[Rfam]
RNA sequence: UGUCUCCUCCACCUUCUCAAAUGGUGGAUUCGCCCCGUAAUCUCACGAUUGCGGGGCUUUUUUC
Numbered sequence: 001u002g003u004c005u006c007c008u009c010c011a012c013c014u015u016c017u018c019a020a021a022u023g024g025u026g027g028a029u030u031c032g033c034c035c036c037g038u039a040a041u042c043u044c045a046c047g048a049u050u051g052c053g054g055g056g057c058u059u060u061u062u063u064c
Base pairs, nucleotide, nucleotide: 008028009027010026011025012024013023032057033056034055035054036053037052038051039050
Rfam assigns this 64-nucleotide RNA from Lampropedia cohaerens to the family "Betaproteobacteria toxic small RNA". On this family, see Sass et al., Sci Rep 2017: "Identification of small RNAs abundant in Burkholderia cenocepacia biofilms reveal putative regulators with a potential role in carbon and iron metabolism". A search with the family's covariance model found it, with a score of 58 bits. Taxonomically the source falls in Lampropedia (Bacteria, Pseudomonadota, Betaproteobacteria, Burkholderiales). The base pairs follow the family's consensus structure, which was predicted with WAR. About the family: Overexpression in amino aid rich medium attenuates growth, suggesting role in repressing amino acid intake and metabolism.